[Rfam]
RNA sequence: AAAUGCAAACGGCAAACUUGUUGAAAGACAAGGACGCAAAGCCACGAGUCUAAGGUUAUCGUACUAGGAUAGUCGGGUUGCCAAA
Numbered sequence: 001a002a003a004u005g006c007a008a009a010c011g012g013c014a015a016a017c018u019u020g021u022u023g024a025a026a027g028a029c030a031a032g033g034a035c036g037c038a039a040a041g042c043c044a045c046g047a048g049u050c051u052a053a054g055g056u057u058a059u060c061g062u063a064c065u066a067g068g069a070u071a072g073u074c075g076g077g078u079u080g081c082c083a084a085a
Base pairs, nucleotide, nucleotide: 012037013036017032018031019030020029021028022027040079041078042077043076045075046074047073048070049069050068055064056063